A member of the RNA family "msiK RNA" from Austwickia chelonae, 59 nucleotides long.
RNA sequence: GGAGCCAGCCUUUUACAACGGAUCGUCCGGCACGUUCCUGCCGGUGAAAGGAAAGACAA
Numbered sequence: 001g002g003a004g005c006c007a008g009c010c011u012u013u014u015a016c017a018a019c020g021g022a023u024c025g026u027c028c029g030g031c032a033c034g035u036u037c038c039u040g041c042c043g044g045u046g047a048a049a050g051g052a053a054a055g056a057c058a059a
Base pairs, nucleotide, nucleotide: 009051010050011049012048013047014046015045027044028043029042030041031040032039
Pairs were carried over by alignment from the consensus structure, which is taken from published work.
It scores 66 bits against the family's covariance model.